[Rfam]
RNA: Small nucleolar RNA SNORA11
RNA sequence: AGGGUGUGCUCAGAGCAGGGGGCCUGAAGAAUGGCUCCUCUGUUUACAACACACCCGAUAGGAAUCUGGGGUCAUUGUGAUGAGGGACACAUUUGUGGCUUCCUUAUGAGAAAAUGCCCUAUACAU
Dot-bracket structure: .(((((((....((((((((((((........))).)))))))))....)))))))............((((...(.(..((.(((.(((....))).))).....)).).)...)))).......
Numbered sequence: 001a002g003g004g005u006g007u008g009c010u011c012a013g014a015g016c017a018g019g020g021g022g023c024c025u026g027a028a029g030a031a032u033g034g035c036u037c038c039u040c041u042g043u044u045u046a047c048a049a050c051a052c053a054c055c056c057g058a059u060a061g062g063a064a065u066c067u068g069g070g071g072u073c074a075u076u077g078u079g080a081u082g083a084g085g086g087a088c089a090c091a092u093u094u095g096u097g098g099c100u101u102c103c104u105u106a107u108g109a110g111a112a113a114a115u116g117c118c119c120u121a122u123a124c125a126u
Stems, first nucleotide, its partner, number of pairs: 002056007013045009022035003069119004076112001078110001081108002084101003088097003